[Rfam]
RNA: Ribosomal protein L19 leader
Organism: Neobacillus mesonae
RNA sequence: ACGAUGUUCCGCUGCAGUGAUAGAUUUUUAUGUGCAUGAGCAUCUG
Numbered sequence: 001a002c003g004a005u006g007u008u009c010c011g012c013u014g015c016a017g018u019g020a021u022a023g024a025u026u027u028u029u030a031u032g033u034g035c036a037u038g039a040g041c042a043u044c045u046g
Stems, first nucleotide, its partner, number of pairs: 003044007013036002017031004